[Rfam]
RNA sequence: AUCUCCUAGGGAUCUUGUUAAAAUGCAGAUUCUGAUUCAACGGCUGUGGGCAGGGCCUGGGAUUCAGCAUUUUUAACAAAUUCCUAGGGGAAGCAGA
Number, nucleotide and partner (000 for none) at each position: 001a000002u000003c090004u089005c088006c000007u000008a000009g084010g083011g082012a000013u000014c000015u079016u078017g077018u076019u075020a074021a072022a071023a070024u000025g068026c067027a000028g065029a064030u000031u062032c061033u060034g000035a000036u000037u000038c000039a000040a000041c000042g000043g000044c000045u000046g000047u000048g000049g000050g000051c000052a000053g000054g000055g000056c000057c000058u000059g000060g033061g032062a031063u000064u029065c028066a000067g026068c025069a000070u023071u022072u021073u000074u020075a019076a018077c017078a016079a015080a000081u000082u011083c010084c009085u000086a000087g000088g005089g004090g003091a000092a000093g000094c000095a000096g000097a000